[Rfam]
RNA sequence: AUACGAAUAUGAUGAUAGCAAAUUCAAAAAAAGAUGAGUGAUUAUCAUGUAUUUGAUAUGAUCAAAACUUUUAUCGCUACGUUCUUUCUGAUUCGUUC
Numbered sequence: 001a002u003a004c005g006a007a008u009a010u011g012a013u014g015a016u017a018g019c020a021a022a023u024u025c026a027a028a029a030a031a032a033g034a035u036g037a038g039u040g041a042u043u044a045u046c047a048u049g050u051a052u053u054u055g056a057u058a059u060g061a062u063c064a065a066a067a068c069u070u071u072u073a074u075c076g077c078u079a080c081g082u083u084c085u086u087u088c089u090g091a092u093u094c095g096u097u098c
Base pairs, nucleotide, nucleotide: 004095005094006093007092
Shown here is a 98-nucleotide RNA from Lupinus angustifolius, a member of the family "Small nucleolar RNA R32/R81/Z41". The source organism's lineage runs through Eukaryota, Magnoliopsida, Pentapetalae, Papilionoideae and Lupinus. Rfam 15.1 lists 238 matches to the family in 139 species. It scores 65 bits against the family's covariance model. Its family is annotated with RNA processing and nucleolus in the Gene Ontology. On this family, see Barneche et al., J Mol Biol 2001: "Identification of 66 box C/D snoRNAs in Arabidopsis thaliana: extensive gene duplications generated multiple isoforms predicting new ribosomal RNA 2'-O-methylation sites".